[Rfam]
The family of this 129-nucleotide sequence from Streptococcus suis is "Ribosomal protein L20 leader".
It is annotated as a cis-regulatory leader.
Rfam's curators put it in the seed alignment.
Lineage of the source: Bacteria > Bacilli > Streptococcaceae > Streptococcus > Streptococcus suis.
Gene Ontology term of the family: regulation of gene expression.
The family's consensus secondary structure was predicted with CMfinder.
Nucleotides: 129
Stems, first nucleotide, its partner, number of pairs: 011026006028051003033046005093115009
Number, partner (000 for none) and nucleotide at each position: 001000u002000g003000a004000g005000a006000a007000a008000a009000g010000c011026a012025g013024a014023a015022g016021u017000g018000a019000g020000a021016a022015c023014u024013u025012c026011u027000c028051g029050c030049c031000u032000u033046g034045c035044g036043a037042c038000u039000a040000a041000c042037g043036u044035u045034g046033u047000c048000u049030g050029g051028c052000u053000c054000u055000a056000c057000g058000g059000a060000u061000u062000a063000a064000g065000a066000u067000u068000u069000c070000u071000u072000c073000g074000g075000a076000a077000a078000g079000a080000a081000u082000a083000a084000u085000g086000g087000u088000g089000u090000a091000g092000u093115g094114c095113g096112g097111a098110c099109u100108u101107g102000u103000u104000u105000a106000g107101c108100a109099a110098g111097u112096c113095c114094g115093u116000u117000u118000c119000g120000u121000u122000u123000u124000u125000c126000u127000c128000g129000a